[Rfam]
RNA sequence: AUGUACCAUUCGUACACUCCGAUUCUGAGCGCGCCGUUCACGCCCAUCUGACGGCUGCUCGCUACGGUUGUUAGCC
Numbered sequence: 001a002u003g004u005a006c007c008a009u010u011c012g013u014a015c016a017c018u019c020c021g022a023u024u025c026u027g028a029g030c031g032c033g034c035c036g037u038u039c040a041c042g043c044c045c046a047u048c049u050g051a052c053g054g055c056u057g058c059u060c061g062c063u064a065c066g067g068u069u070g071u072u073a074g075c076c
Stems, first nucleotide, its partner, number of pairs: 002016005020036002023033001025031001048074007
Source information:
The family of this 76-nucleotide RNA from Xanthomonas oryzae is "Xanthomonas sRNA sX9". The source organism's lineage runs through Bacteria, Pseudomonadota, Gammaproteobacteria, Lysobacteraceae and Xanthomonas oryzae pv. oryzae. The family's consensus secondary structure was predicted with RNAalifold.